[Rfam]
RNA sequence: GAUGUAGGCCGUGACUGGCGCUGAGGUGGAGCACCACCGGGGAGCGGCCGCCGUUCUCGGGAAGUGCCGUGCGCCUGGGCCACAAGC
Numbered sequence: 001g002a003u004g005u006a007g008g009c010c011g012u013g014a015c016u017g018g019c020g021c022u023g024a025g026g027u028g029g030a031g032c033a034c035c036a037c038c039g040g041g042g043a044g045c046g047g048c049c050g051c052c053g054u055u056c057u058c059g060g061g062a063a064g065u066g067c068c069g070u071g072c073g074c075c076u077g078g079g080c081c082a083c084a085a086g087c
Base pairs, nucleotide, nucleotide: 003053004052007049008048009047010046011045012044015041016040017075018074019073020072021071026037027036028035029034066080067079068078